A member of the RNA family "small nucleolar RNA snoR117" from Brassica rapa, 77 nucleotides long.
[Rfam]
RNA sequence: AGCCUGUGAUGUGUGAGAUUGUCCGUACCAUCUGAGAUUUCUCCUUGAUGAGUUGUAUCCUCUAAGUUCUGAGGCUU
Number, nucleotide and partner (000 for none) at each position: 001a076002g075003c074004c073005u000006g000007u000008g000009a000010u000011g000012u000013g000014u000015g000016a000017g000018a000019u000020u000021g000022u000023c000024c000025g000026u000027a000028c000029c000030a000031u000032c000033u000034g000035a000036g000037a000038u000039u000040u000041c000042u000043c000044c000045u000046u000047g000048a000049u000050g000051a000052g000053u000054u000055g000056u000057a000058u000059c000060c000061u000062c000063u000064a000065a000066g000067u000068u000069c000070u000071g000072a000073g004074g003075c002076u001077u000
It is annotated as a C/D-box small nucleolar RNA.